Shown here is a 326-nucleotide RNA from Ptilonorhynchus violaceus, a member of the family "7SK RNA".
The organism belongs to Ptilonorhynchus, within Eukaryota.

RNA sequence: GGAUGUGAGGGUGAUCUGGCUGAGACAUGUCACCCCAUUGAUCGCCGGGGUUUAUUUAGGCUAUCUGGCUGGCUAGGUGGGUAUUGCUUUCCUUCCUCAACGCUCCAUGUGCGUCCCUCCUGAAGUUGCGCGCUCCGUCAGUGAGGACUACCUCCCCAAUAGAGACAGUACCAUUCAUUGGUUAAGGGUAUAUGGUAGCUAUGCUCCUGUUCUAGAACCUCAAAACAAGCUCGAGGUCCAUUUGUAGGAGAACAUAGGGUAAUCAAGCUUCCAAGACUGCAGACACAUCCAAGUGAGGAGCUGCAUGGGGCAGUCUUCCAUUGUUU
Numbered sequence: 001g002g003a004u005g006u007g008a009g010g011g012u013g014a015u016c017u018g019g020c021u022g023a024g025a026c027a028u029g030u031c032a033c034c035c036c037a038u039u040g041a042u043c044g045c046c047g048g049g050g051u052u053u054a055u056u057u058a059g060g061c062u063a064u065c066u067g068g069c070u071g072g073c074u075a076g077g078u079g080g081g082u083a084u085u086g087c088u089u090u091c092c093u094u095c096c097u098c099a100a101c102g103c104u105c106c107a108u109g110u111g112c113g114u115c116c117c118u119c120c121u122g123a124a125g126u127u128g129c130g131c132g133c134u135c136c137g138u139c140a141g142u143g144a145g146g147a148c149u150a151c152c153u154c155c156c157c158a159a160u161a162g163a164g165a166c167a168g169u170a171c172c173a174u175u176c177a178u179u180g181g182u183u184a185a186g187g188g189u190a191u192a193u194g195g196u197a198g199c200u201a202u203g204c205u206c207c208u209g210u211u212c213u214a215g216a217a218c219c220u221c222a223a224a225a226c227a228a229g230c231u232c233g234a235g236g237u238c239c240a241u242u243u244g245u246a247g248g249a250g251a252a253c254a255u256a257g258g259g260u261a262a263u264c265a266a267g268c269u270u271c272c273a274a275g276a277c278u279g280c281a282g283a284c285a286c287a288u289c290c291a292a293g294u295g296a297g298g299a300g301c302u303g304c305a306u307g308g309g310g311c312a313g314u315c316u317u318c319c320a321u322u323g324u325u326u
Stems, first nucleotide, its partner, number of pairs: 001106003006099006013091002018088002024085002027082001028079004033072002035068003040065003044061003115168001117164003120137001122135002125133002138159001145155003198268003205261001207259002210256001219250003225245005291326003295321001297319003300314005
7SK was discovered as an abundant small nuclear RNA in the mid-70s but a possible function has only recently been suggested. Two independent studies have found that 7SK RNA binds the CDK9/cyclin T complex (known as elongation factor P-TEFb).